[Rfam]
RNA sequence: UUUGCAGGACUUGUCUAAAUAGGCAUACAAUGAUACAGUGUUAUUUGCCACCUAAACCUGUUUCCUGCUAGACUAAUUUGUGAAAAAUGGGCAGUUGAGUUAGCCCUAGUCUUUUGGUUUCCUCAACAAUCAUUUUUCUCAUAGUC
Numbered sequence: 001u002u003u004g005c006a007g008g009a010c011u012u013g014u015c016u017a018a019a020u021a022g023g024c025a026u027a028c029a030a031u032g033a034u035a036c037a038g039u040g041u042u043a044u045u046u047g048c049c050a051c052c053u054a055a056a057c058c059u060g061u062u063u064c065c066u067g068c069u070a071g072a073c074u075a076a077u078u079u080g081u082g083a084a085a086a087a088u089g090g091g092c093a094g095u096u097g098a099g100u101u102a103g104c105c106c107u108a109g110u111c112u113u114u115u116g117g118u119u120u121c122c123u124c125a126a127c128a129a130u131c132a133u134u135u136u137u138c139u140c141a142u143a144g145u146c
Stems, first nucleotide, its partner, number of pairs: 004068006016047007080140001082138009094127004
RNA: small nucleolar RNA snoR135
Organism: Digitaria exilis